[Rfam]
RNA: Enterococcus sRNA 1300
RNA sequence: GUUCACUCCAUGCGUUUAUGGUAAGUAUGCGAUAAAGAAGCGGAUUUCCACUCAGGUGGGCUUUUUUUGAGCUGCUUAUUUUUACGUAUGAGGACAUGGAUUGCGACCCGGACGGCAUAUUUGCUGUGCUUUAUUUCGCUCUGUUCUGGCACGUAACCCAUGCAGAUUCAAGCCCACAUGUGGACUUGGAUCUGCAUUUUUUAU
Numbered sequence: 001g002u003u004c005a006c007u008c009c010a011u012g013c014g015u016u017u018a019u020g021g022u023a024a025g026u027a028u029g030c031g032a033u034a035a036a037g038a039a040g041c042g043g044a045u046u047u048c049c050a051c052u053c054a055g056g057u058g059g060g061c062u063u064u065u066u067u068u069g070a071g072c073u074g075c076u077u078a079u080u081u082u083u084a085c086g087u088a089u090g091a092g093g094a095c096a097u098g099g100a101u102u103g104c105g106a107c108c109c110g111g112a113c114g115g116c117a118u119a120u121u122u123g124c125u126g127u128g129c130u131u132u133a134u135u136u137c138g139c140u141c142u143g144u145u146c147u148g149g150c151a152c153g154u155a156a157c158c159c160a161u162g163c164a165g166a167u168u169c170a171a172g173c174c175c176a177c178a179u180g181u182g183g184a185c186u187u188g189g190a191u192c193u194g195c196a197u198u199u200u201u202u203a204u
Base pairs, nucleotide, nucleotide: 006093007092009090010089011088012087013086014085015084020080021079022078023077024076025075026074029072030071034067035066036065037064038063039062040061041060048059049058050057051056097143098142099141100140103139104138105137106136111135112134160197161196162195163194164193165192167190168189170187171186172185174183175182176181